[Rfam]
RNA sequence: GUGCAUUCUUCAUUUCUCUUGGUAGCUAUACUCUAAAUGCUUCCAAGAUAUGAAUGAAUGCUAUAUAAACUGUAGGGACAUCCAAAGGGCUGUGAUUCUCCUAUGUCUCAGUCUUAUUUCAUACCUGCAACAUGU
Numbered sequence: 001g002u003g004c005a006u007u008c009u010u011c012a013u014u015u016c017u018c019u020u021g022g023u024a025g026c027u028a029u030a031c032u033c034u035a036a037a038u039g040c041u042u043c044c045a046a047g048a049u050a051u052g053a054a055u056g057a058a059u060g061c062u063a064u065a066u067a068a069a070c071u072g073u074a075g076g077g078a079c080a081u082c083c084a085a086a087g088g089g090c091u092g093u094g095a096u097u098c099u100c101c102u103a104u105g106u107c108u109c110a111g112u113c114u115u116a117u118u119u120c121a122u123a124c125c126u127g128c129a130a131c132a133u134g135u
Stems, first nucleotide, its partner, number of pairs: 003061004009053002017048006024041003065135003071129006086115007094107002
Dot-bracket structure: ..((((..((......((((((.(((............))).))))))...))....))))...(((...((((((.........(((((((.((..........)).)))))))........))))))...)))

This 135-nucleotide RNA from Erinaceus europaeus belongs to the Rfam family "Small nucleolar RNA SNORA14". Lineage of the source: Eukaryota > Bilateria > Chordata > Erinaceinae > Erinaceus. It is one of the family's seed sequences. It is annotated as an H/ACA-box small nucleolar RNA. From the family's description: ACA14 is a member of the H/ACA class of snoRNA that guide the sites of modification of uridines to pseudouridines. The family has 18 seed sequences and 848 matches in Rfam 15.1.